RNA sequence: AUGUAAGCAACUUUUUACUUUUUAGAUUCAUUUAAUAAAUGAUAUAUGUAGUUCAUAUUAUAAACCACAUGCAUCAUUUAUUGAAUGAAUCUAAAAAGUAAAAAGUUGCUUACGU
Numbered sequence: 001a002u003g004u005a006a007g008c009a010a011c012u013u014u015u016u017a018c019u020u021u022u023u024a025g026a027u028u029c030a031u032u033u034a035a036u037a038a039a040u041g042a043u044a045u046a047u048g049u050a051g052u053u054c055a056u057a058u059u060a061u062a063a064a065c066c067a068c069a070u071g072c073a074u075c076a077u078u079u080a081u082u083g084a085a086u087g088a089a090u091c092u093a094a095a096a097a098g099u100a101a102a103a104a105g106u107u108g109c110u111u112a113c114g115u
Stems, first nucleotide, its partner, number of pairs: 002114006009107005015101011027089017049067001051065002
Notes
This 115-nucleotide sequence from Medicago truncatula belongs to the Rfam family "MIR2593 microRNA precursor family". The base pairs follow the family's consensus structure, which was predicted with RNAalifold. A search with the family's covariance model found it, with a score of 98 bits. Gene Ontology terms of the family: miRNA-mediated post-transcriptional gene silencing and RISC complex. NCBI's taxonomy places the organism under Eukaryota, Tracheophyta, rosids, Fabaceae, Medicago.